[Rfam]
A member of the RNA family "ZMP/ZTP riboswitch aptamer (pfl RNA motif)" from Sphaerisporangium krabiense, 86 nucleotides long. The family's consensus secondary structure is taken from published work.
RNA sequence: GGAUCGGGCCGUGACUGGCGCUGAGGUGGAGUACCACCGGGGAGCGGCCCGGCGACUCGUCGAUGCCGUGCGCCUGGGCGACCCCA
Number, nucleotide and partner (000 for none) at each position: 001g000002g000003a000004u052005c051006g050007g049008g048009c047010c046011g045012u044013g000014a000015c041016u040017g074018g073019c072020g071021c070022u000023g000024a000025g000026g037027u036028g035029g034030a000031g000032u000033a000034c029035c028036a027037c026038c000039g000040g016041g015042g000043a000044g012045c011046g010047g009048c008049c007050c006051g005052g004053c000054g000055a000056c000057u000058c000059g000060u000061c000062g000063a000064u080065g079066c078067c077068g000069u000070g021071c020072g019073c018074c017075u000076g000077g067078g066079c065080g064081a000082c000083c000084c000085c000086a000

The source organism's lineage runs through Bacteria, Actinomycetota, Actinomycetes, Streptosporangiales and Sphaerisporangium.